Shown here is a 96-nucleotide RNA sequence from Galenevirus mbcm1, a member of the family "PhotoRC-II RNA". Pairs were carried over by alignment from the consensus structure, which is taken from published work.

RNA sequence: CCUUUUCUAUGUGCACUCCGCAAACCGAGACCUAUAGGGUGCCUAAACGAGUCUCUCAUACCUCCGCCUGAGGGUGGCGAAGGAAUAUUUUAUCAG
Dot-bracket structure: .............(((((.(......[[[[[...).))))).........]]]]].....(((.(((.........))).))).............
Numbered sequence: 001c002c003u004u005u006u007c008u009a010u011g012u013g014c015a016c017u018c019c020g021c022a023a024a025c026c027g028a029g030a031c032c033u034a035u036a037g038g039g040u041g042c043c044u045a046a047a048c049g050a051g052u053c054u055c056u057c058a059u060a061c062c063u064c065c066g067c068c069u070g071a072g073g074g075u076g077g078c079g080a081a082g083g084a085a086u087a088u089u090u091u092a093u094c095a096g
Stems, first nucleotide, its partner, number of pairs: 014041005020035001027055005061083003065079003